[Rfam]
Rfam assigns this 70-nucleotide RNA from Heterocephalus glaber to the family "Small nucleolar RNA SNORD103/SNORD85".
The pairing is the family consensus, mapped onto this sequence.
RNA sequence: ACUGGCAAGGAAGAUACACACUUGUCCUCACUUAGAUCAUAGUUCAUUGAUAGCAUUGUUCUGAGCCAGU
Numbered sequence: 001a002c003u004g005g006c007a008a009g010g011a012a013g014a015u016a017c018a019c020a021c022u023u024g025u026c027c028u029c030a031c032u033u034a035g036a037u038c039a040u041a042g043u044u045c046a047u048u049g050a051u052a053g054c055a056u057u058g059u060u061c062u063g064a065g066c067c068a069g070u
Stems, first nucleotide, its partner, number of pairs: 001070006